Shown here is a 100-nucleotide RNA sequence from Zizania palustris, a member of the family "Small nucleolar RNA snoR31/Z110/Z27". A search with the family's covariance model found it, with a score of 77 bits. Lineage of the source: Eukaryota > Streptophytina > Euphyllophyta > Petrosaviidae > Zizania. The literature on the family includes a 2001 paper in J Mol Biol by Barneche et al., "Identification of 66 box C/D snoRNAs in Arabidopsis thaliana: extensive gene duplications generated multiple isoforms predicting new ribosomal RNA 2'-O-methylation sites". The family's RNA type in Rfam is C/D-box small nucleolar RNA.
[Rfam]
RNA sequence: AGUAUCAGAGGACGAAACCUUAUAACAAUCUUAGGACACCUUCUGACACUGUGUUAUUACCUGCACGGUGAAUGAGAAGGCAUUUUUUUCUGAUGAUACU
Numbered sequence: 001a002g003u004a005u006c007a008g009a010g011g012a013c014g015a016a017a018c019c020u021u022a023u024a025a026c027a028a029u030c031u032u033a034g035g036a037c038a039c040c041u042u043c044u045g046a047c048a049c050u051g052u053g054u055u056a057u058u059a060c061c062u063g064c065a066c067g068g069u070g071a072a073u074g075a076g077a078a079g080g081c082a083u084u085u086u087u088u089u090c091u092g093a094u095g096a097u098a099c100u
Stems, first nucleotide, its partner, number of pairs: 001100007047053002